[Rfam]
RNA sequence: AAUAUGACAAGGCAAACUCACUGAAAGGUGAAUACGCAAAGCUAUAGGGGCUAAGUUCUUACUAGAAUAUGCCAGCCGGUUACCGAU
Number, nucleotide and partner (000 for none) at each position: 001a000002a000003u000004a000005u000006g000007a000008c000009a000010a000011g000012g037013c036014a000015a000016a000017c000018u031019c030020a029021c028022u027023g000024a000025a000026a000027g022028g021029u020030g019031a018032a000033u000034a000035c000036g013037c012038a000039a000040a081041g080042c079043u078044a000045u000046a000047g077048g076049g073050g072051c071052u000053a000054a000055g000056u067057u066058c065059u064060u000061a000062c000063u000064a059065g058066a057067a056068u000069a000070u000071g051072c050073c049074a000075g000076c048077c047078g043079g042080u041081u040082a000083c000084c000085g000086a000087u000